[Rfam]
RNA sequence: UUACAAAGAGUUCUUGAGUCUCCAUACGUCUCCGACGUUGCAUGGAGUCUAUGUCUGGACCUUCACCAUUCACUCUUUCAGGGGUAGAAUGUGCUUGUUGUAGGAUUCGGACAUAGCCUUCAUGCAUGCCAGAGAGUUGUGGAAGCCCGUGAACUACUUGUAG
Numbered sequence: 001u002u003a004c005a006a007a008g009a010g011u012u013c014u015u016g017a018g019u020c021u022c023c024a025u026a027c028g029u030c031u032c033c034g035a036c037g038u039u040g041c042a043u044g045g046a047g048u049c050u051a052u053g054u055c056u057g058g059a060c061c062u063u064c065a066c067c068a069u070u071c072a073c074u075c076u077u078u079c080a081g082g083g084g085u086a087g088a089a090u091g092u093g094c095u096u097g098u099u100g101u102a103g104g105a106u107u108c109g110g111a112c113a114u115a116g117c118c119u120u121c122a123u124g125c126a127u128g129c130c131a132g133a134g135a136g137u138u139g140u141g142g143a144a145g146c147c148c149g150u151g152a153a154c155u156a157c158u159u160g161u162a163g
Stems, first nucleotide, its partner, number of pairs: 002162005009155005015149002018146002021143006030134003034130001036128003040125008049116011061104003066093001067091005
RNA: MIR538 microRNA precursor family